[Rfam]
Rfam assigns this 79-nucleotide sequence from Ignelater luminosus to the family "mir-263 microRNA precursor family". Pairs were carried over by alignment from the consensus structure, which was predicted with RNAalifold. The match comes from Rfam's covariance-model search (58 bits). Taxonomically the source falls in Ignelater (Eukaryota, Panarthropoda, Neuropteroidea, Agrypninae). The literature on the family includes a 2009 paper in BMC Genomics by Li et al., "Direct sequencing and expression analysis of a large number of miRNAs in Aedes aegypti and a multi-species survey of novel mosquito miRNAs".
RNA sequence: CUGGCCUGUGAAUGGCACUGGAAGAAUUCACGGGGUACUUUAACUUCUCGUGGUCUUUGAGUGCCAUCCCCAGAGUCGG
Numbered sequence: 001c002u003g004g005c006c007u008g009u010g011a012a013u014g015g016c017a018c019u020g021g022a023a024g025a026a027u028u029c030a031c032g033g034g035g036u037a038c039u040u041u042a043a044c045u046u047c048u049c050g051u052g053g054u055c056u057u058u059g060a061g062u063g064c065c066a067u068c069c070c071c072a073g074a075g076u077c078g079g
Base pairs, nucleotide, nucleotide: 003076006073007072008071012067013066014065015064016063017062019060021058022056024055025054028053029052030051031050032049033048